[Rfam]
This 90-nucleotide RNA sequence from Curvibacter sp. PAE-UM belongs to the Rfam family "c-di-GMP-I riboswitch aptamer".
RNA sequence: UUCUCAAUUUGGCACACCCGCACGAAAGUCGGGGUCGCAAAACCUCCGGUCUAAAGCCCCUUCCCUGGGCACGAUAGCGGGGUUGCCGUC
Numbered sequence: 001u002u003c004u005c006a007a008u009u010u011g012g013c014a015c016a017c018c019c020g021c022a023c024g025a026a027a028g029u030c031g032g033g034g035u036c037g038c039a040a041a042a043c044c045u046c047c048g049g050u051c052u053a054a055a056g057c058c059c060c061u062u063c064c065c066u067g068g069g070c071a072c073g074a075u076a077g078c079g080g081g082g083u084u085g086c087c088g089u090c
Stems, first nucleotide, its partner, number of pairs: 012038002017033004022029002041084004046080003049075003056070004